About this RNA: This 103-nucleotide RNA sequence from Limnobaculum parvum belongs to the Rfam family "Tryptophan operon leader". At least 6 amino acid operons are known to be regulated by attenuation. For this family Rfam cites "Attenuation in amino acid biosynthetic operons" (Kolter and Yanofsky, Annu Rev Genet, 1982). Rfam links the family to the GO terms tryptophan biosynthetic process and transcriptional attenuation by ribosome. Lineage of the source: Bacteria > Pseudomonadota > Gammaproteobacteria > Enterobacterales > Limnobaculum. The family's consensus secondary structure is taken from published work.
RNA sequence: AAUCGUUGGUGGCGAUUCUUCCCUUAGCGGGCGGUUUACUUGCACCAAUUUGUCAUCUGAUAAAGCAAAUAGCCAAAAGCCCGCAAAAUGCGGGCUUUUUUAU
Numbered sequence: 001a002a003u004c005g006u007u008g009g010u011g012g013c014g015a016u017u018c019u020u021c022c023c024u025u026a027g028c029g030g031g032c033g034g035u036u037u038a039c040u041u042g043c044a045c046c047a048a049u050u051u052g053u054c055a056u057c058u059g060a061u062a063a064a065g066c067a068a069a070u071a072g073c074c075a076a077a078a079g080c081c082c083g084c085a086a087a088a089u090g091c092g093g094g095c096u097u098u099u100u101u102a103u
Base pairs, nucleotide, nucleotide: 009043010042011041012040014037015036017034018033020031021030022029078096079095080094081093082092083091084090
The family's RNA type in Rfam is cis-regulatory leader.